[Rfam]
RNA: U4atac minor spliceosomal RNA
RNA sequence: ACCAUCCUUUUUUGGGGUAGCGCUACUGUCUGAACGAAUAGUGAGGACAGGUACUGGCUAACGCCUACACAACACACCCGCAUCAACUAGAGCUUUGCUUUACUUUGGUGCAAUUUUUGGAAAA
Numbered sequence: 001a002c003c004a005u006c007c008u009u010u011u012u013u014g015g016g017g018u019a020g021c022g023c024u025a026c027u028g029u030c031u032g033a034a035c036g037a038a039u040a041g042u043g044a045g046g047a048c049a050g051g052u053a054c055u056g057g058c059u060a061a062c063g064c065c066u067a068c069a070c071a072a073c074a075c076a077c078c079c080g081c082a083u084c085a086a087c088u089a090g091a092g093c094u095u096u097g098c099u100u101u102a103c104u105u106u107g108g109u110g111c112a113a114u115u116u117u118u119g120g121a122a123a124a
Base pairs, nucleotide, nucleotide: 005019007017008016009015020058021057022055025052026050027049028048029047030046031045034042035041080111081110082109083108084107085106088102089101090100091099092098093097